[Rfam]
RNA sequence: CGCUCAUCCAGAGGGGUGGAGGGACCGGCCCUGUGAAGCCCCGGCAACCCUCCCGGUGCUGACGCUCUCGCGACCUGCGAGGCCGGCCGGGACAGGGUGCCAAUUCCGGCCCGCGACCAAGGUGGCGCGGGACAGAUGAGGA
Numbered sequence: 001c002g003c004u005c006a007u008c009c010a011g012a013g014g015g016g017u018g019g020a021g022g023g024a025c026c027g028g029c030c031c032u033g034u035g036a037a038g039c040c041c042c043g044g045c046a047a048c049c050c051u052c053c054c055g056g057u058g059c060u061g062a063c064g065c066u067c068u069c070g071c072g073a074c075c076u077g078c079g080a081g082g083c084c085g086g087c088c089g090g091g092a093c094a095g096g097g098u099g100c101c102a103a104u105u106c107c108g109g110c111c112c113g114c115g116a117c118c119a120a121g122g123u124g125g126c127g128c129g130g131g132a133c134a135g136a137u138g139a140g141g142a
Stems, first nucleotide, its partner, number of pairs: 003140006013042005021031003025109004043101004048097002051092007105134001110131006
Rfam assigns this 142-nucleotide sequence from Thermomonospora curvata to the family "SAM riboswitch aptamer (S box leader)". The SAM riboswitch is found upstream of a number of genes which code for proteins involved in methionine or cysteine biosynthesis in Gram-positive bacteria.